[Rfam]
RNA: mir-2843 microRNA precursor family
RNA sequence: GGCUUUGGAGUCUAAGGAAAUUAGGUCGGAUACAUACGAAUUAGUGCGUAUGCGUGUCUGUCUUCGUGAUCAAGCCU
Numbered sequence: 001g002g003c004u005u006u007g008g009a010g011u012c013u014a015a016g017g018a019a020a021u022u023a024g025g026u027c028g029g030a031u032a033c034a035u036a037c038g039a040a041u042u043a044g045u046g047c048g049u050a051u052g053c054g055u056g057u058c059u060g061u062c063u064u065c066g067u068g069a070u071c072a073a074g075c076c077u
Stems, first nucleotide, its partner, number of pairs: 001076005007071001010070003017065003022060003027054002032049002035046003